Rfam assigns this 305-nucleotide RNA from Vigna angularis to the family "Plant signal recognition particle RNA".
The family's consensus secondary structure is taken from published work.
The family has 63 seed sequences and 4,988 matches in Rfam 15.1.
The family's RNA type in Rfam is non-coding RNA gene.
A search with the family's covariance model found it, with a score of 239 bits.
Lineage of the source: Eukaryota > Embryophyta > Papilionoideae > Vigna > Vigna angularis.
RNA sequence: GCCGAGUUGGGUAGCGUCAACUUGUGACUCAAGUGAGGGCAUUACGGUGGUGGGAUAAUACGGUGGCUUCUCUGGGUUGGGCUGUGCAUGGCAAAAUGCUGGCCUGCCCAUUCCAAGUUGAGAGCUGACUCAUGGGUCCUGAGCUAAGGCUUGGGUCUCUAGAGUCCUAAAGUGGAGGACACAGCGUGAGGCUGGUUUCACAGAGCAGCGAAAACCUCCCUCUCCUGACAGUGGAGGGAUAACAGGCCGCUGCAAUCAUAGUCCAGUAUGCCCAGGGAGCCCAGUUUACCUAGACCGCCACCAUU
Number, nucleotide and partner (000 for none) at each position: 001g040002c039003c038004g023005a022006g021007u020008u019009g018010g017011g000012u000013a000014g000015c000016g000017u010018c009019a008020a007021c006022u005023u004024g000025u000026g000027a000028c037029u036030c035031a000032a000033g000034u000035g030036a029037g028038g003039g002040c001041a000042u000043u000044a304045c000046g302047g301048u300049g299050g298051u297052g296053g295054g000055a000056u292057a291058a000059u288060a287061c000062g000063g000064u000065g281066g280067c000068u279069u278070c277071u276072c275073u274074g273075g272076g271077u270078u000079g264080g263081g262082c261083u260084g259085u258086g257087c000088a256089u255090g000091g253092c000093a000094a251095a000096a000097u000098g000099c000100u249101g248102g247103c246104c245105u244106g243107c000108c238109c237110a000111u236112u235113c234114c233115a232116a000117g229118u228119u227120g226121a000122g224123a223124g222125c000126u000127g166128a165129c164130u163131c162132a000133u000134g159135g158136g157137u000138c155139c154140u153141g152142a151143g150144c149145u000146a000147a000148g000149g144150c143151u142152u141153g140154g139155g138156u000157c136158u135159c134160u000161a000162g131163a130164g129165u128166c127167c172168u000169a000170a000171a000172g167173u000174g219175g218176a217177g216178g215179a000180c000181a000182c000183a000184g000185c210186g209187u208188g000189a000190g000191g000192c203193u202194g201195g000196u000197u000198u000199c000200a000201c194202a193203g192204a000205g000206c000207a000208g187209c186210g185211a000212a000213a000214a000215c178216c177217u176218c175219c174220c000221u000222c124223u123224c122225c000226u120227g119228a118229c117230a000231g000232u115233g114234g113235a112236g111237g109238g108239a000240u000241a000242a000243c106244a105245g104246g103247c102248c101249g100250c000251u094252g000253c091254a000255a089256u088257c086258a085259u084260a083261g082262u081263c080264c079265a000266g000267u000268a000269u000270g077271c076272c075273c074274a073275g072276g071277g070278a069279g068280c066281c065282c000283a000284g000285u000286u000287u060288a059289c000290c000291u057292a056293g000294a000295c053296c052297g051298c050299c049300a048301c047302c046303a000304u044305u000